This 371-nucleotide sequence from Mammaliicoccus stepanovicii belongs to the Rfam family "Bacterial RNase P class B". By type it is a ribozyme. A reference for the family is Frank and Pace (1998), "Ribonuclease P: unity and diversity in a tRNA processing ribozyme", Annu Rev Biochem. Taxonomically the source falls in Mammaliicoccus (Bacteria, Bacillota, Bacilli, Caryophanales).
RNA sequence: UAUUUCGGAUAACCGCUACAUUAUGUAGAGGAAAGUCCAUGCUCACACAUUCUGAGAUGAAUGUAGUGUUCGUGCUUGGUGAAACAAUAAGCCAAGGCAAUUAAUUGACGGCAACGAACUAGCCUAAGUUAUUUAUAAUAUGGUUAUAGUAGUUUGAAAGUGCCACAGUGACGUAGCUUCUAUAGAAAUGUAGAAGGUGGAACGCGGUAAACCCCUCGAGUGAGCAAUCCAAAAUUGGUAGGAGCACUUCUUUGACGGAAAUGAACGGAAUGAGAAGGUAUGAUAUUCAUACAGACAGAUGGUUAUCACUGGCGUACGAGUGUAGCUAGUACACGUUAGAAGUACUAAAGGACAGAACAUGGCUUACAGAU
Numbered sequence: 001u002a003u004u005u006c007g008g009a010u011a012a013c014c015g016c017u018a019c020a021u022u023a024u025g026u027a028g029a030g031g032a033a034a035g036u037c038c039a040u041g042c043u044c045a046c047a048c049a050u051u052c053u054g055a056g057a058u059g060a061a062u063g064u065a066g067u068g069u070u071c072g073u074g075c076u077u078g079g080u081g082a083a084a085c086a087a088u089a090a091g092c093c094a095a096g097g098c099a100a101u102u103a104a105u106u107g108a109c110g111g112c113a114a115c116g117a118a119c120u121a122g123c124c125u126a127a128g129u130u131a132u133u134u135a136u137a138a139u140a141u142g143g144u145u146a147u148a149g150u151a152g153u154u155u156g157a158a159a160g161u162g163c164c165a166c167a168g169u170g171a172c173g174u175a176g177c178u179u180c181u182a183u184a185g186a187a188a189u190g191u192a193g194a195a196g197g198u199g200g201a202a203c204g205c206g207g208u209a210a211a212c213c214c215c216u217c218g219a220g221u222g223a224g225c226a227a228u229c230c231a232a233a234a235u236u237g238g239u240a241g242g243a244g245c246a247c248u249u250c251u252u253u254g255a256c257g258g259a260a261a262u263g264a265a266c267g268g269a270a271u272g273a274g275a276a277g278g279u280a281u282g283a284u285a286u287u288c289a290u291a292c293a294g295a296c297a298g299a300u301g302g303u304u305a306u307c308a309c310u311g312g313c314g315u316a317c318g319a320g321u322g323u324a325g326c327u328a329g330u331a332c333a334c335g336u337u338a339g340a341a342g343u344a345c346u347a348a349a350g351g352a353c354a355g356a357a358c359a360u361g362g363c364u365u366a367c368a369g370a371u
Stems, first nucleotide, its partner, number of pairs: 005370002007367001008307007016028005033365003037362005042224005047064006070219003074215001075096006097109001098107003110214002113154003121145004128139003160212002162208003177196008228243003247277006278292006309350002314345004